[Rfam]
RNA: c-di-AMP riboswitch aptamer (ydaO/yuaA leader)
RNA sequence: UAUUAAAAAACGCCUAAUUUCUAUUGAAAGCGGGGGAACCAGUUAUUAUGGGGUGAACUACCAGUGUGUAGCGGGCUAACUUUCUGUCCGAACCCGUCAGCUAACUCCGUAGGCGUAGAAAGUGGGGAAAU
Numbered sequence: 001u002a003u004u005a006a007a008a009a010a011c012g013c014c015u016a017a018u019u020u021c022u023a024u025u026g027a028a029a030g031c032g033g034g035g036g037a038a039c040c041a042g043u044u045a046u047u048a049u050g051g052g053g054u055g056a057a058c059u060a061c062c063a064g065u066g067u068g069u070a071g072c073g074g075g076c077u078a079a080c081u082u083u084c085u086g087u088c089c090g091a092a093c094c095c096g097u098c099a100g101c102u103a104a105c106u107c108c109g110u111a112g113g114c115g116u117a118g119a120a121a122g123u124g125g126g127g128a129a130a131u
Stems, first nucleotide, its partner, number of pairs: 011115004018029003030110006040050002051095003058071004073089004